[Rfam]
RNA sequence: ACCAUGGAGAAUCUGCAGGACAAGAUUCUUGGUACCACCAUUGAGAACUCCAAGAUUGUCCUGCAGAUUGAUAAC
Numbered sequence: 001a002c003c004a005u006g007g008a009g010a011a012u013c014u015g016c017a018g019g020a021c022a023a024g025a026u027u028c029u030u031g032g033u034a035c036c037a038c039c040a041u042u043g044a045g046a047a048c049u050c051c052a053a054g055a056u057u058g059u060c061c062u063g064c065a066g067a068u069u070g071a072u073a074a075c
Stems, first nucleotide, its partner, number of pairs: 010069002013066011027055006
This 75-nucleotide RNA sequence from Chrysochloris asiatica belongs to the Rfam family "mir-492 microRNA precursor family". The family has 6 seed sequences and 149 matches in Rfam 15.1. The organism belongs to Chrysochloris, within Eukaryota.